[Rfam]
RNA sequence: GAUCGUGUUCCGAGGCUACCUCCUCCUCCCAAGCCGAAGAACACGUUUGAGGCAAGAACUCCUCCUCCCAAUCUUGCCUCUGAAUAACGUCACCCGCCGGUACCUCCUCCCACCGGCGGGUGACGUUU
Numbered sequence: 001g002a003u004c005g006u007g008u009u010c011c012g013a014g015g016c017u018a019c020c021u022c023c024u025c026c027u028c029c030c031a032a033g034c035c036g037a038a039g040a041a042c043a044c045g046u047u048u049g050a051g052g053c054a055a056g057a058a059c060u061c062c063u064c065c066u067c068c069c070a071a072u073c074u075u076g077c078c079u080c081u082g083a084a085u086a087a088c089g090u091c092a093c094c095c096g097c098c099g100g101u102a103c104c105u106c107c108u109c110c111c112a113c114c115g116g117c118g119g120g121u122g123a124c125g126u127u128u
Base pairs, nucleotide, nucleotide: 007042008041009040014035015034016033017032049080050079051078052077053076054075055074056073057072090123091122092121093120094119095118096117097116098115099114100113